RNA: msiK RNA
RNA sequence: GAGGCAUGCCCUUUACAACGGAUCGUCCGGCACGUUCCUGCCGGUGAAGGAAAGGCAA
Numbered sequence: 001g002a003g004g005c006a007u008g009c010c011c012u013u014u015a016c017a018a019c020g021g022a023u024c025g026u027c028c029g030g031c032a033c034g035u036u037c038c039u040g041c042c043g044g045u046g047a048a049g050g051a052a053a054g055g056c057a058a
Base pairs, nucleotide, nucleotide: 010050011049012048013047014046015045027044028043029042030041031040032039